[Rfam]
RNA sequence: UGGUGAUGAUGACUAUCAUAGGACACCUUAGGAAUAACCAUGGAAUAAUAAUUUUUUUUCUGAGCCAU
Numbered sequence: 001u002g003g004u005g006a007u008g009a010u011g012a013c014u015a016u017c018a019u020a021g022g023a024c025a026c027c028u029u030a031g032g033a034a035u036a037a038c039c040a041u042g043g044a045a046u047a048a049u050a051a052u053u054u055u056u057u058u059u060c061u062g063a064g065c066c067a068u
Base pairs, nucleotide, nucleotide: 001067002066003065004064
Shown here is a 68-nucleotide RNA from Meleagris gallopavo, a member of the family "Small nucleolar RNA SNORD58". By type it is a C/D-box small nucleolar RNA. The family has 33 seed sequences and 2,484 matches in Rfam 15.1. On this family, see Galardi et al., Mol Cell Biol 2002: "Purified box C/D snoRNPs are able to reproduce site-specific 2'-O-methylation of target RNA in vitro". Pairs were carried over by alignment from the consensus structure, which was predicted with PFOLD. The match comes from Rfam's covariance-model search (58 bits). Its Rfam clan is "SNORD58 clan". snoRNA U58 is found in introns 1, 3 and 6 of the ribosomal protein RPL17 gene in humans.